[Rfam]
RNA sequence: GAAGUAAGGAGUAAUAAAAUUUCUUGUUAUAUCAAGAGGUUUGUUAUUGCUCCUUUAC
Numbered sequence: 001g002a003a004g005u006a007a008g009g010a011g012u013a014a015u016a017a018a019a020u021u022u023c024u025u026g027u028u029a030u031a032u033c034a035a036g037a038g039g040u041u042u043g044u045u046a047u048u049g050c051u052c053c054u055u056u057a058c
Stems, first nucleotide, its partner, number of pairs: 006055011018041002021038006
This 58-nucleotide RNA sequence from Malus domestica belongs to the Rfam family "Plastid-psbA-4 3UTR RNA".
The match comes from Rfam's covariance-model search (61 bits).
The family's RNA type in Rfam is cis-regulatory element.